[Rfam]
RNA sequence: GGUAUGAUGCUGCUGCCAGCCCGCAUCCCGUCUGGUUUGAUGCGUGCGGCCUGUGUCUCAAACACAGCGCAAAACUCCUUAUCGGAUUUUC
Numbered sequence: 001g002g003u004a005u006g007a008u009g010c011u012g013c014u015g016c017c018a019g020c021c022c023g024c025a026u027c028c029c030g031u032c033u034g035g036u037u038u039g040a041u042g043c044g045u046g047c048g049g050c051c052u053g054u055g056u057c058u059c060a061a062a063c064a065c066a067g068c069g070c071a072a073a074a075c076u077c078c079u080u081a082u083c084g085g086a087u088u089u090u091c
Stems, first nucleotide, its partner, number of pairs: 015050003019047002022044006051067006
Notes:
Peptidase-S11 RNA: a 91-nucleotide sequence from Pantoea vagans. The family's RNA type in Rfam is cis-regulatory element. The match comes from Rfam's covariance-model search (56 bits).